[Rfam]
A member of the RNA family "Mason-Pfizer monkey virus packaging signal" from Sciurus vulgaris, 285 nucleotides long. The match comes from Rfam's covariance-model search (166 bits). This family represents a group of sequences that are related to the Mason-Pfizer monkey virus (MPMV) packaging signal. The packaging signal is located in the 5' UTR and is required for specific RNA encapsidation. By type it is a cis-regulatory element. Rfam 15.1 lists 2,921 matches to the family in 53 species. NCBI's taxonomy places the organism under Eukaryota, Eumetazoa, Bilateria, Sciuridae, Sciurus.
RNA sequence: UGGCGCCCAACGGUGUGGCUUUGGAUACGGGGUAAUUCGCAAGGGAAAAGGCGACUAAUUGUUUGGCCAAAGAAAAAAAAAAGCGAAAGUCAGUUCGACAAAGAUCGCCGUGGGAGCCUGCUGCGCAGUUCUUAAAGGUACAGUAGCGCCUAACUAUGGGACAAGAAUCAAGUAAGCACAAAGUUUUUGUUAAGCAAUUAAAAGAAGCUUUAAAGACACGGGGAGUAAAGGUUUAGAGUAAUGAUCUUUUUAAGUUUUUUGACCUUAUUAAGGACACCUGUCCAU
Dot-bracket structure: .....(((....(((..........))).)))....((((..........))))...................................((..((........(.(..(((((.......)))))..).)...)).)).....(.(..((((....)))).).).....((((.................................)).)).......((((((((..(((((.........)))))......))))))))........(.((((....)))).)